[Rfam]
RNA sequence: ACGAAAAAAAACCUGCAGAACAAACAUCUGCAGGUUCUUUUUGUUUUCAUGAUGAAAACAAAAAGACAAAGGGAGAGGAGAAACCAGAGUAAAACCUACGGGGAAGAAUAAGUAUACUCUGUUU
Numbered sequence: 001a002c003g004a005a006a007a008a009a010a011a012c013c014u015g016c017a018g019a020a021c022a023a024a025c026a027u028c029u030g031c032a033g034g035u036u037c038u039u040u041u042u043g044u045u046u047u048c049a050u051g052a053u054g055a056a057a058a059c060a061a062a063a064a065g066a067c068a069a070a071g072g073g074a075g076a077g078g079a080g081a082a083a084c085c086a087g088a089g090u091a092a093a094a095c096c097u098a099c100g101g102g103g104a105a106g107a108a109u110a111a112g113u114a115u116a117c118u119c120u121g122u123u124u
Stems, first nucleotide, its partner, number of pairs: 011035009036073005042060005085121007094113002097110002
RNA: ylbH leader